Alphaproteobacteria transfer-messenger RNA: a 363-nucleotide RNA sequence from Brevundimonas sp. S30B. It scores 239 bits against the family's covariance model. From the family's description: Bacterial tmRNA, also known as 10Sa RNA or SsrA, is named for its dual tRNA and mRNA-like properties. Its role is to liberate the mRNA from a stalled ribosome. To accomplish this part of the tmRNA is used as a reading frame that ends in a translation stop signal. The broken mRNA is replaced in the ribosome by the tmRNA and translation of the tmRNA leads to addition of a proteolysis tag to the incomplete protein enabling recognition by a protease. Lineage of the source: Bacteria > Pseudomonadati > Pseudomonadota > Caulobacteraceae > Brevundimonas. The family's RNA type in Rfam is non-coding RNA gene.
RNA sequence: ACCCUUGGAACGGGGGCCCGCCUGACCUAUAUUGGAUUUGUCCGGGUUCGCCCGGACUAUGGCGAUAAACGCGCCUGUAAUAAGCGGACCGGACCCGGGUGCGAUUCCCGGCGGCUCCACCAAUUCCUCCCGUGUAUCGGCGGGCGGUGCGGGGCCGACUAGCAUCGACGGACGUGUAAAGAGGAUUGCUUUCGCUCGUCCUGGCCCACCGUAUCGGGCCUUUAUCUAACUGCGAACGAUAACUUCGCUGGAGAAGUCCGCCUCGCCGCGUAAUGCGGUUCGGUUGAUUUCGAAUCUUAAGUCCUAGGGGUUCAGAUCCCUGGGCGGGGCCCGGAGGGCGCCUGGCAACAGAAGCCCUCCACU
Numbered sequence: 001a002c003c004c005u006u007g008g009a010a011c012g013g014g015g016g017c018c019c020g021c022c023u024g025a026c027c028u029a030u031a032u033u034g035g036a037u038u039u040g041u042c043c044g045g046g047u048u049c050g051c052c053c054g055g056a057c058u059a060u061g062g063c064g065a066u067a068a069a070c071g072c073g074c075c076u077g078u079a080a081u082a083a084g085c086g087g088a089c090c091g092g093a094c095c096c097g098g099g100u101g102c103g104a105u106u107c108c109c110g111g112c113g114g115c116u117c118c119a120c121c122a123a124u125u126c127c128u129c130c131c132g133u134g135u136a137u138c139g140g141c142g143g144g145c146g147g148u149g150c151g152g153g154g155c156c157g158a159c160u161a162g163c164a165u166c167g168a169c170g171g172a173c174g175u176g177u178a179a180a181g182a183g184g185a186u187u188g189c190u191u192u193c194g195c196u197c198g199u200c201c202u203g204g205c206c207c208a209c210c211g212u213a214u215c216g217g218g219c220c221u222u223u224a225u226c227u228a229a230c231u232g233c234g235a236a237c238g239a240u241a242a243c244u245u246c247g248c249u250g251g252a253g254a255a256g257u258c259c260g261c262c263u264c265g266c267c268g269c270g271u272a273a274u275g276c277g278g279u280u281c282g283g284u285u286g287a288u289u290u291c292g293a294a295u296c297u298u299a300a301g302u303c304c305u306a307g308g309g310g311u312u313c314a315g316a317u318c319c320c321u322g323g324g325c326g327g328g329g330c331c332c333g334g335a336g337g338g339c340g341c342c343u344g345g346c347a348a349c350a351g352a353a354g355c356c357c358u359c360c361a362c363u
Stems, first nucleotide, its partner, number of pairs: 040057007061196005071189003074184003085174002089171003095111005112157007197211002203220005327343004333360006